This 101-nucleotide sequence from Nicotiana attenuata belongs to the Rfam family "Small nucleolar RNA Z157/R69/R10". The base pairs follow the family's consensus structure, which was predicted with PFOLD. A search with the family's covariance model found it, with a score of 67 bits.

[Rfam]
RNA sequence: UUGUGUGCGGUGAGGAAGCAAAUAUGUGGACUAGAGUUUCUGAUCUGGGGUUUCAAACCCCCAAUGGUUGAAGACAAACCCUUGGCUGUCUGAGCUCACUC
Dot-bracket structure: ..(((.((............................((((...(.((((..........))))..)...))))....................)).)))..
Gene Ontology terms of the family: RNA processing and nucleolus. Clan: SNORD52 clan.